[Rfam]
RNA sequence: CUAACGAUACUUCUGUAAUUCGCAGCCCGGCCACAAAGAAGGCGGGGACGUUCAAUUCCUAUGG
Numbered sequence: 001c002u003a004a005c006g007a008u009a010c011u012u013c014u015g016u017a018a019u020u021c022g023c024a025g026c027c028c029g030g031c032c033a034c035a036a037a038g039a040a041g042g043c044g045g046g047g048a049c050g051u052u053c054a055a056u057u058c059c060u061a062u063g064g
Base pairs, nucleotide, nucleotide: 012061013025014024015023016022026047027046028045030043031042032041048060050058
Annotation:
The record is a 64-nucleotide RNA sequence, which matches "pemK RNA" in Rfam. The family's consensus secondary structure is taken from published work. By type it is a cis-regulatory element.